[Rfam]
A member of the RNA family "Archaeal RNase P", 298 nucleotides long.
Its Rfam clan is "RNaseP clan".
The family's consensus secondary structure is taken from published work.
Ribonuclease P (RNase P) is a ubiquitous endoribonuclease, found in archaea, bacteria and eukarya as well as chloroplasts and mitochondria. Its best characterised activity is the generation of mature 5'-ends of tRNAs by cleaving the 5'-leader elements of precursor-tRNAs. Cellular RNase Ps are ribonucleoproteins. RNA from bacterial RNase Ps retains its catalytic activity in the absence of the protein subunit, i.e. it is a ribozyme. Isolated eukaryotic and archaeal RNase P RNA has not been shown to retain its catalytic function, but is still essential for the catalytic activity of the holoenzyme. Although the archaeal and eukaryotic holoenzymes have a much greater protein content than the bacterial ones, the RNA cores from all the three lineages are homologous -- helices corresponding to P1, P2, P3, P4, and P10/11 are common to all cellular RNase P RNAs. Yet, there is considerable sequence variation, particularly among the eukaryotic RNAs.

RNA sequence: GGGAGCAGGAGGGUUGCUGACAGUGCAAGACACUGAGGAAAGUCCCCUCUCCACGACGCAAGUGGCUCGGUUUACGCCGAGGAUCCGAGAGGGUCGGCCAUGUAGAAGAAACGAACCGUGGCAGGUGUGUGCUAUGAAUCCGAAAGGAGGAGGUCGCCUGUUUACGGAUGGAACGAACAACCCCACUGGAGCAAGUCCAAACAGUCCCGUCGACGAGCGUCGCCGAGGGACGGGUCGGAUGCUAAGUUGAAUGCAACCAGCCUAAUGGUGAACAAAAAGGGGCUUACUCCCUGCACCC
Numbered sequence: 001g002g003g004a005g006c007a008g009g010a011g012g013g014u015u016g017c018u019g020a021c022a023g024u025g026c027a028a029g030a031c032a033c034u035g036a037g038g039a040a041a042g043u044c045c046c047c048u049c050u051c052c053a054c055g056a057c058g059c060a061a062g063u064g065g066c067u068c069g070g071u072u073u074a075c076g077c078c079g080a081g082g083a084u085c086c087g088a089g090a091g092g093g094u095c096g097g098c099c100a101u102g103u104a105g106a107a108g109a110a111a112c113g114a115a116c117c118g119u120g121g122c123a124g125g126u127g128u129g130u131g132c133u134a135u136g137a138a139u140c141c142g143a144a145a146g147g148a149g150g151a152g153g154u155c156g157c158c159u160g161u162u163u164a165c166g167g168a169u170g171g172a173a174c175g176a177a178c179a180a181c182c183c184c185a186c187u188g189g190a191g192c193a194a195g196u197c198c199a200a201a202c203a204g205u206c207c208c209g210u211c212g213a214c215g216a217g218c219g220u221c222g223c224c225g226a227g228g229g230a231c232g233g234g235u236c237g238g239a240u241g242c243u244a245a246g247u248u249g250a251a252u253g254c255a256a257c258c259a260g261c262c263u264a265a266u267g268g269u270g271a272a273c274a275a276a277a278a279g280g281g282g283c284u285u286a287c288u289c290c291c292u293g294c295a296c297c298c
Base pairs, nucleotide, nucleotide: 001298002297003296005294006293007292008291009290010288011287012258013257014256015255016254017253021035022034023033024032025031040285041284042283044282045281046280047279048278049191050190051189052188061187062186063185064184065183066081067080068079069078070077082095083094084093085092086091096182097181101179102178103177116167117166118165120162121161122160123159124158125157126156139147140146195240196239197238198237204231205230206229207228208227